[Rfam]
RNA sequence: UCUUUAUGUGAUUAUAGGCUAUAAAGCCUUUGAAAUAAGCACUUUGGGGCGCUUUCCCUUAGUGCUUUUUAUAAUUUA
Numbered sequence: 001u002c003u004u005u006a007u008g009u010g011a012u013u014a015u016a017g018g019c020u021a022u023a024a025a026g027c028c029u030u031u032g033a034a035a036u037a038a039g040c041a042c043u044u045u046g047g048g049g050c051g052c053u054u055u056c057c058c059u060u061a062g063u064g065c066u067u068u069u070u071a072u073a074a075u076u077u078a
Stems, first nucleotide, its partner, number of pairs: 017077002029073001032070001037067007046058004

Notes
The record is a 78-nucleotide sequence from Streptococcus pneumoniae, which matches "Streptococcus sRNA SpF01" in Rfam. Pairs were carried over by alignment from the consensus structure, which was predicted with mfold.